[Rfam]
RNA: S10-Clostridia ribosomal protein leader
RNA sequence: UGAUAGCGUAGAAACGUGAGGUUGCUGCAUUAGAUUGCAGGUUUUCCGUGGAGCGAAUGUCAAGUUAAGAAACUGGCGACAA
Numbered sequence: 001u002g003a004u005a006g007c008g009u010a011g012a013a014a015c016g017u018g019a020g021g022u023u024g025c026u027g028c029a030u031u032a033g034a035u036u037g038c039a040g041g042u043u044u045u046c047c048g049u050g051g052a053g054c055g056a057a058u059g060u061c062a063a064g065u066u067a068a069g070a071a072a073c074u075g076g077c078g079a080c081a082a
Stems, first nucleotide, its partner, number of pairs: 014049003018046004025040005058081004064077004